Rfam assigns this 72-nucleotide RNA from TM7 phylum sp. oral taxon 356 to the family "tRNA". The family's RNA type in Rfam is transfer RNA.
RNA sequence: GGUCUCGUCGUCUAAAGGUUAGGACAUCAGGUUUUCAUCCUGACAAUUCGGGUUCGAUUCCCGGCGAGAUCA
Numbered sequence: 001g002g003u004c005u006c007g008u009c010g011u012c013u014a015a016a017g018g019u020u021a022g023g024a025c026a027u028c029a030g031g032u033u034u035u036c037a038u039c040c041u042g043a044c045a046a047u048u049c050g051g052g053u054u055c056g057a058u059u060c061c062c063g064g065c066g067a068g069a070u071c072a
Stems, first nucleotide, its partner, number of pairs: 001071007010025004027043005048064005